[Rfam]
RNA: DUF805b RNA
RNA sequence: AAAGUGGAAACCGAAAAACUAAAGAGUAGGUA
Number, nucleotide and partner (000 for none) at each position: 001a000002a000003a020004g019005u018006g000007g000008a000009a000010a031011c030012c029013g000014a000015a000016a000017a000018a005019c004020u003021a000022a000023a000024g000025a000026g000027u000028a000029g012030g011031u010032a000